[Rfam]
RNA sequence: CCCGUGCAGUUCAUCGAGCAUGAAUAGGAUAAGCAGGAAAGCGACAAUCAGACUUGGGAGUGAUGCCCCGCCUUAAAUUAUGAUUCGAAACCGAAAAUUGAUUAGUACCAUGCCUAUAAGGUGGCAAUCAAAGUAGGGAGUAGCUAUGGACCACAGCAUAGAGCUUCUGUGGUG
Numbered sequence: 001c002c003c004g005u006g007c008a009g010u011u012c013a014u015c016g017a018g019c020a021u022g023a024a025u026a027g028g029a030u031a032a033g034c035a036g037g038a039a040a041g042c043g044a045c046a047a048u049c050a051g052a053c054u055u056g057g058g059a060g061u062g063a064u065g066c067c068c069c070g071c072c073u074u075a076a077a078u079u080a081u082g083a084u085u086c087g088a089a090a091c092c093g094a095a096a097a098u099u100g101a102u103u104a105g106u107a108c109c110a111u112g113c114c115u116a117u118a119a120g121g122u123g124g125c126a127a128u129c130a131a132a133g134u135a136g137g138g139a140g141u142a143g144c145u146a147u148g149g150a151c152c153a154c155a156g157c158a159u160a161g162a163g164c165u166u167c168u169g170u171g172g173u174g
Stems, first nucleotide, its partner, number of pairs: 003022005013064004026115003051074002055070004085146001087144001091137002094134001098131006106123004150173006
RNA: Pseudomonadales-1 RNA
Organism: Acinetobacter sp. WC-743